[Rfam]
RNA: L17-Actino-Proteobacteria ribosomal protein leader
RNA sequence: CGACAGGCGACCGCCUGCUCGGAUACUGACUCCGGUACCUGAUACGGCCGGGGCAG
Numbered sequence: 001c002g003a004c005a006g007g008c009g010a011c012c013g014c015c016u017g018c019u020c021g022g023a024u025a026c027u028g029a030c031u032c033c034g035g036u037a038c039c040u041g042a043u044a045c046g047g048c049c050g051g052g053g054c055a056g
Base pairs, nucleotide, nucleotide: 001021002020003019004017005016006015007014008013026056027055028054030053031052032051033050034049035048036047